[Rfam]
RNA: tRNA
RNA sequence: GCUCUUCUAGUAUACUCAUUACAACUGACUUCCAAUCUUUAAAAUCUGGUAUCAACCCAGAGAAGAGCA
Numbered sequence: 001g002c003u004c005u006u007c008u009a010g011u012a013u014a015c016u017c018a019u020u021a022c023a024a025c026u027g028a029c030u031u032c033c034a035a036u037c038u039u040u041a042a043a044a045u046c047u048g049g050u051a052u053c054a055a056c057c058c059a060g061a062g063a064a065g066a067g068c069a
Stems, first nucleotide, its partner, number of pairs: 001068007010022003024040001027037002045061005